The family of this 88-nucleotide RNA from Mus musculus is "mir-3473 microRNA precursor family".
A search with the family's covariance model found it, with a score of 72 bits.

RNA sequence: ACCACUGAGCCAUCUCUCCAGCCCCCAAAAUAAAAUCUUAGAAAAAAAAAAAGAGAGAGAUGUUGGGCUGGAGAGAUGGCUCAGCAGU
Numbered sequence: 001a002c003c004a005c006u007g008a009g010c011c012a013u014c015u016c017u018c019c020a021g022c023c024c025c026c027a028a029a030a031u032a033a034a035a036u037c038u039u040a041g042a043a044a045a046a047a048a049a050a051a052a053g054a055g056a057g058a059g060a061u062g063u064u065g066g067g068c069u070g071g072a073g074a075g076a077u078g079g080c081u082c083a084g085c086a087g088u
Base pairs, nucleotide, nucleotide: 002087005084006083007082008081009080010079011078012077013076014075015074016073017072018071019070020069021068022067023066024065
The base pairs follow the family's consensus structure, which was predicted with RNAalifold. Its family is annotated with RISC complex, miRNA-mediated post-transcriptional gene silencing and cellular response to mechanical stimulus in the Gene Ontology. Lineage of the source: Eukaryota > Chordata > Craniata > Glires > Mus.